RNA: Small nucleolar RNA SNORD83
RNA sequence: GCCAAAUGAUGUGAAAUGGAUGGCAUGAGCGCUCUGCAAAGAUGACCCUAAUCUAUCACCCUACACUGAUGGCU
Number, nucleotide and partner (000 for none) at each position: 001g073002c072003c071004a070005a000006a000007u000008g000009a000010u000011g000012u000013g000014a000015a000016a000017u000018g000019g000020a000021u000022g000023g000024c000025a000026u000027g000028a000029g037030c000031g000032c036033u000034c000035u000036g032037c029038a000039a000040a000041g000042a000043u000044g000045a000046c000047c000048c000049u000050a000051a000052u000053c000054u000055a000056u000057c000058a000059c000060c000061c000062u000063a000064c000065a000066c000067u000068g000069a000070u004071g003072g002073c001074u000